[Rfam]
RNA sequence: CUAAAAUUAGCCACUUGUUAUUUUCUUAUUGGUUCUUAGUGUGUUAAAAUUUUAUAAAAAGCACUUAAAAAAUGACAAGUGGCUAAUUUUGA
Numbered sequence: 001c002u003a004a005a006a007u008u009a010g011c012c013a014c015u016u017g018u019u020a021u022u023u024u025c026u027u028a029u030u031g032g033u034u035c036u037u038a039g040u041g042u043g044u045u046a047a048a049a050u051u052u053u054a055u056a057a058a059a060a061g062c063a064c065u066u067a068a069a070a071a072a073u074g075a076c077a078a079g080u081g082g083c084u085a086a087u088u089u090u091g092a
Stems, first nucleotide, its partner, number of pairs: 002091023026067001028065001030063002033060002036057003